[Rfam]
RNA sequence: GACUCCAGGGGAAUAAGGGCAUUGCCUCCUUUUGUGGAAGGACACGCCCUUCUGAUGGAGAAUGGGAACUCCCUUCCUCCUGCAGCAGCCUUCCUGCAGCGGUCCUGCUAGGACAGUGUGGAUGCUGUAGGCUGAUGCAACUGCUGUCGCCCCAGAAAGACAGCGCUCCACAGU
Numbered sequence: 001g002a003c004u005c006c007a008g009g010g011g012a013a014u015a016a017g018g019g020c021a022u023u024g025c026c027u028c029c030u031u032u033u034g035u036g037g038a039a040g041g042a043c044a045c046g047c048c049c050u051u052c053u054g055a056u057g058g059a060g061a062a063u064g065g066g067a068a069c070u071c072c073c074u075u076c077c078u079c080c081u082g083c084a085g086c087a088g089c090c091u092u093c094c095u096g097c098a099g100c101g102g103u104c105c106u107g108c109u110a111g112g113a114c115a116g117u118g119u120g121g122a123u124g125c126u127g128u129a130g131g132c133u134g135a136u137g138c139a140a141c142u143g144c145u146g147u148c149g150c151c152c153c154a155g156a157a158a159g160a161c162a163g164c165g166c167u168c169c170a171c172a173g174u
Stems, first nucleotide, its partner, number of pairs: 002174003008169004014160001016050004025041003029037002051156003058079001060076003064073003085150001086146004095139004100134001105120001
RNA: FGF-1 internal ribosome entry site (IRES)